tRNA: a 75-nucleotide sequence from a Candidatus Methanofastidiosia archaeon.
About the family: Transfer RNA (tRNA) molecules are approximately 80 nucleotides in length.
RNA sequence: GCUCCGAUAGUGUAGUCCGGUCAAUCAUCCAGGCCUCUCGAGCCUGAGACUCGGGUUCGAAUCCCGGUCGGAGCA
Numbered sequence: 001g002c003u004c005c006g007a008u009a010g011u012g013u014a015g016u017c018c019g020g021u022c023a024a025u026c027a028u029c030c031a032g033g034c035c036u037c038u039c040g041a042g043c044c045u046g047a048g049a050c051u052c053g054g055g056u057u058c059g060a061a062u063c064c065c066g067g068u069c070g071g072a073g074c075a
Base pairs, nucleotide, nucleotide: 001074002073003072004071005070006069007068010028011027012026030046031045032044033043034042051067052066053065054064055063
Annotation: The match comes from Rfam's covariance-model search (58 bits). The source organism's lineage runs through Archaea, Methanobacteriati, Methanobacteriota and Candidatus Methanofastidiosia. It is annotated as a transfer RNA.